Shown here is an 83-nucleotide RNA sequence from Rhizorhabdus dicambivorans, a member of the family "tRNA". The organism belongs to Rhizorhabdus, within Bacteria. Rfam describes the family as follows. Transfer RNA (tRNA) molecules are approximately 80 nucleotides in length. The match comes from Rfam's covariance-model search (64 bits). The family's consensus secondary structure is taken from published work.

RNA sequence: GGAAGGGUGGCCGAGUGGUUAAAGGCAGCAGACUGUAAAUCUGCCCGUGAAAGCGUACGCUGGUUCGAAUCCAGCCCCUUCCA
Numbered sequence: 001g002g003a004a005g006g007g008u009g010g011c012c013g014a015g016u017g018g019u020u021a022a023a024g025g026c027a028g029c030a031g032a033c034u035g036u037a038a039a040u041c042u043g044c045c046c047g048u049g050a051a052a053g054c055g056u057a058c059g060c061u062g063g064u065u066c067g068a069a070u071c072c073a074g075c076c077c078c079u080u081c082c083a
Base pairs, nucleotide, nucleotide: 001082002081003080004079005078006077007076010026011025012024028044029043030042031041032040059075060074061073062072063071